[Rfam]
RNA sequence: AGCCCAAAGCACAUGAUGAGAAAGCACCGAAACUGACUCUGUAUGAAGUGCAUUCAAUCCAAUGCUGAGCUUUGUGGCU
Numbered sequence: 001a002g003c004c005c006a007a008a009g010c011a012c013a014u015g016a017u018g019a020g021a022a023a024g025c026a027c028c029g030a031a032a033c034u035g036a037c038u039c040u041g042u043a044u045g046a047a048g049u050g051c052a053u054u055c056a057a058u059c060c061a062a063u064g065c066u067g068a069g070c071u072u073u074g075u076g077g078c079u
Base pairs, nucleotide, nucleotide: 001079002078003077004076005074006073007072008071009070010069